The record is an 82-nucleotide sequence from Paenibacillus sp. MY03, which matches "ZMP/ZTP riboswitch aptamer (pfl RNA motif)" in Rfam. The match comes from Rfam's covariance-model search (62 bits). The source organism's lineage runs through Bacteria, Bacillota, Bacilli, Paenibacillaceae and Paenibacillus. Pairs were carried over by alignment from the consensus structure, which is taken from published work.
[Rfam]
RNA sequence: AAUGGGAUGCGUAACUGGCGAGAACGUAGAUCACUACGGGGGAGCGCAUUCGUCAAACUAGCCGUUCGCCUGGGCAAAGCAU
Number, nucleotide and partner (000 for none) at each position: 001a000002a000003u000004g000005g051006g050007a049008u048009g047010c046011g045012u044013a000014a000015c041016u040017g070018g069019c068020g067021a066022g000023a000024a000025c000026g037027u036028a035029g034030a000031u000032c000033a000034c029035u028036a027037c026038g000039g000040g016041g015042g000043a000044g012045c011046g010047c009048a008049u007050u006051c005052g000053u000054c000055a000056a000057a000058c000059u077060a000061g075062c074063c073064g000065u000066u021067c020068g019069c018070c017071u000072g000073g063074g062075c061076a000077a059078a000079g000080c000081a000082u000